Rfam assigns this 120-nucleotide RNA sequence from Dictyoglomus turgidum to the family "TPP riboswitch aptamer (THI element)".
RNA sequence: AUGGUUUUCCAGGGGAGCUGAGGGGAUAAGCUCGGCUGAGAGGAGACCUAAGAUCCCGGUCUCGACCCUUUGAACCUGACCCGGGUAAUGCCGGCGGAGGGAGUGAAAGGUAUAAAAAAU
Numbered sequence: 001a002u003g004g005u006u007u008u009c010c011a012g013g014g015g016a017g018c019u020g021a022g023g024g025g026a027u028a029a030g031c032u033c034g035g036c037u038g039a040g041a042g043g044a045g046a047c048c049u050a051a052g053a054u055c056c057c058g059g060u061c062u063c064g065a066c067c068c069u070u071u072g073a074a075c076c077u078g079a080c081c082c083g084g085g086u087a088a089u090g091c092c093g094g095c096g097g098a099g100g101g102a103g104u105g106a107a108a109g110g111u112a113u114a115a116a117a118a119a120u
Base pairs, nucleotide, nucleotide: 006108007107008106009105011069012068013067014066017036018035019034020033021032043063044062045061046060047059075100076099077098081094082093083092084091
Record summary
The family's consensus secondary structure is taken from published work.